[Rfam]
RNA sequence: AGCUUUGCGCAGAGGCGAUAACGUGACCAAUGAGGCCUAGCCGAGGUGCGUUUAUUGCUGGUUGAAACUGAUACCAAUUACCCGUCGCUUUCGCCUGAAAUAUGGGUGUUAGCGCAAUUUUUGGAAGGCCCUAGGGGC
Number, nucleotide and partner (000 for none) at each position: 001a000002g000003c000004u000005u000006u000007g000008c000009g000010c000011a000012g000013a000014g000015g000016c000017g000018a000019u000020a052021a051022c050023g049024u048025g000026a047027c046028c045029a000030a000031u000032g000033a000034g042035g041036c040037c000038u000039a000040g036041c035042c034043g000044a000045g028046g027047u026048g024049c023050g022051u021052u020053u000054a000055u000056u000057g000058c000059u000060g000061g000062u000063u000064g000065a000066a000067a000068c000069u000070g000071a000072u000073a000074c000075c000076a000077a000078u000079u000080a000081c000082c000083c000084g115085u000086c114087g000088c112089u111090u000091u000092c108093g107094c106095c105096u104097g103098a000099a000100a000101u000102a000103u097104g096105g095106g094107u093108g092109u000110u000111a089112g088113c000114g086115c084116a000117a000118u000119u000120u000121u000122u000123g000124g000125a000126a000127g000128g138129c137130c136131c135132u000133a000134g000135g131136g130137g129138c128

Rfam assigns this 138-nucleotide RNA sequence from Mesorhabditis belari to the family "U4 spliceosomal RNA". NCBI's taxonomy places the organism under Eukaryota, Nematoda, Rhabditida, Rhabditomorpha, Mesorhabditis. The family is grouped with related families in Rfam's "U4 clan". The match comes from Rfam's covariance-model search (101 bits). Its family is annotated with U4 snRNP and spliceosomal tri-snRNP complex assembly in the Gene Ontology.